This 568-nucleotide part of an RNA from Micromonas commoda belongs to the Rfam family "Eukaryotic large subunit ribosomal RNA".
A search with the family's covariance model found it, with a score of 3231 bits.
Pairs were carried over by alignment from the consensus structure, which is taken from published work.
The family is grouped with related families in Rfam's "LSU clan".
RNA sequence: UGACCUCAGUUCAGACAAGGCUACCCGCCGAAUUUAAGCAUAUUACUAAGCGGAGGAAAAGAAAAUAACAAUGAUUCCCCUAGUAACGGCGAGCGAACCGGGAAGAGCCCAACUUGAAAAUCUGGAGGCUUGUCCUUCCGAAUUGUAGUCUAGAGAAGUGCCAUCUGCGGCUGGCUGGUCGAAAGUUCCCUGGAAAGGGACGUCAGAGAGGGUGAGAGCCCCGUCACGAUCGGUUAAGUCGCUCCACGAUGCGCUUUCGAGGAGUCGGGUUGUUUGGGAAUGCAGCCCUAAGCGGGAGGUAAAUUCCUUCUAAGGCUAAAUAUUGGCGAGAGACCGAUAGCGAACAAGUACCGCGAGGGAAAGAUGAAAAGACCUUUGAAAAGAGAGUUAAAAAGUACCUGAAAUUGUUGAGGGGGAAGCGAUUGAAACCAGCGGGUGCUCCUCGGGUAGGGUCAAACCACACGCCGAGGGCUGGUCAACGUGGGUUAGUCGGGCGGGAUAUUACGCUUGAUUGACCGAGGACUCGACGUUGGCGGAAUGGUUUCAAUCGGCCCGUCUAGAAACACGG
Number, nucleotide and partner (000 for none) at each position: 001u000002g000003a000004c000005c000006u000007c000008a000009g000010u000011u000012c000013a000014g000015a000016c000017a000018a000019g000020g000021c000022u000023a000024c055025c053026c052027g051028c050029c000030g000031a000032a000033u000034u000035u042036a041037a000038g000039c000040a000041u036042a035043u000044u000045a000046c000047u000048a000049a000050g028051c027052g026053g025054a000055g024056g000057a000058a000059a000060a000061g000062a000063a000064a000065a072066u071067a000068a000069c000070a000071a066072u065073g000074a000075u000076u103077c102078c101079c100080c000081u000082a000083g000084u000085a000086a000087c093088g000089g000090c000091g000092a000093g087094c000095g000096a000097a000098c000099c000100g079101g078102g077103a076104a000105g000106a317107g316108c315109c314110c000111a000112a000113c000114u148115u147116g146117a000118a144119a143120a000121u141122c140123u000124g138125g137126a136127g135128g000129c000130u000131u000132g000133u000134c000135c127136u126137u125138c124139c000140g122141a121142a000143u119144u118145g000146u116147a115148g114149u000150c000151u000152a000153g000154a000155g258156a257157a255158g254159u253160g252161c000162c251163a250164u249165c248166u000167g242168c241169g240170g239171c238172u237173g000174g000175c233176u232177g231178g230179u229180c228181g227182a000183a000184a000185g201186u000187u200188c199189c198190c197191u000192g000193g000194a000195a000196a000197g190198g189199g188200a187201c185202g000203u000204c208205a000206g000207a000208g204209a000210g000211g221212g220213u000214g000215a000216g000217a000218g000219c000220c212221c211222c000223g000224u000225c000226a000227c181228g180229a179230u178231c177232g176233g175234u000235u000236a000237a172238g171239u170240c169241g168242c167243u000244c000245c000246a000247c000248g165249a164250u163251g162252c160253g159254c158255u157256u000257u156258c155259g000260a000261g000262g000263a000264g000265u000266c000267g288268g287269g286270u285271u284272g283273u282274u000275u000276g000277g000278g000279a000280a000281u000282g273283c272284a271285g270286c269287c268288c267289u000290a000291a000292g000293c000294g311295g310296g309297a308298g307299g000300u000301a000302a000303a000304u000305u000306c000307c298308u297309u296310c295311u294312a000313a000314g109315g108316c107317u106318a000319a000320a000321u000322a000323u000324u000325g000326g000327c000328g000329a000330g000331a000332g000333a000334c000335c000336g000337a000338u000339a000340g000341c000342g000343a000344a000345c000346a000347a000348g000349u000350a000351c358352c357353g000354c000355g000356a000357g352358g351359g000360a000361a000362a000363g000364a000365u000366g000367a000368a000369a000370a000371g000372a000373c000374c385375u384376u383377u382378g000379a000380a000381a000382a377383g376384a375385g374386a000387g000388u000389u000390a000391a000392a000393a000394a000395g000396u000397a000398c000399c000400u000401g000402a000403a000404a000405u000406u000407g000408u000409u000410g000411a000412g000413g000414g000415g000416g000417a000418a000419g000420c550421g549422a548423u547424u546425g545426a544427a543428a542429c541430c540431a539432g000433c000434g000435g000436g473437u000438g000439c000440u471441c470442c469443u468444c467445g466446g000447g000448u000449a000450g000451g000452g000453u000454c000455a000456a000457a000458c000459c000460a000461c000462a000463c000464g000465c000466c445467g444468a443469g442470g441471g440472c000473u436474g000475g000476u000477c532478a531479a530480c529481g528482u527483g000484g000485g000486u000487u000488a000489g000490u000491c000492g000493g000494g000495c000496g000497g000498g000499a000500u000501a000502u000503u000504a000505c000506g000507c000508u000509u000510g000511a000512u000513u000514g000515a000516c000517c000518g000519a000520g000521g000522a000523c000524u000525c000526g000527a482528c481529g480530u479531u478532g477533g000534c000535g000536g000537a000538a000539u431540g430541g429542u428543u427544u426545c425546a424547a423548u422549c421550g420551g000552c000553c568554c567555g566556u565557c000558u000559a000560g000561a000562a000563a000564c000565a556566c555567g554568g553